Overview: The family of this 169-nucleotide RNA sequence from Cohnella sp. AR92 is "c-di-AMP riboswitch aptamer (ydaO/yuaA leader)". The pairing is the family consensus, mapped onto this sequence.
RNA sequence: CAUACUCUCCAGCCGAAUUUCUGCAAGAAAACGGGGGAACCAACUUUGCACGCGCUGCUUCCGCACGCGGCACCCGGGGUGAAUUCCAAGCGCCAUGCGCCAUAGGAUAGGGCUUUCUGUUCAGGCCCGAACCCGUCAGCUAACCUCGUAGGCUGUUAUGGAACAGGAC
Numbered sequence: 001c002a003u004a005c006u007c008u009c010c011a012g013c014c015g016a017a018u019u020u021c022u023g024c025a026a027g028a029a030a031a032c033g034g035g036g037g038a039a040c041c042a043a044c045u046u047u048g049c050a051c052g053c054g055c056u057g058c059u060u061c062c063g064c065a066c067g068c069g070g071c072a073c074c075c076g077g078g079g080u081g082a083a084u085u086c087c088a089a090g091c092g093c094c095a096u097g098c099g100c101c102a103u104a105g106g107a108u109a110g111g112g113c114u115u116u117c118u119g120u121u122c123a124g125g126c127c128c129g130a131a132c133c134c135g136u137c138a139g140c141u142a143a144c145c146u147c148g149u150a151g152g153c154u155g156u157u158a159u160g161g162a163a164c165a166g167g168a169c
Stems, first nucleotide, its partner, number of pairs: 011154004018030003031149006041076001077134003085107003110128004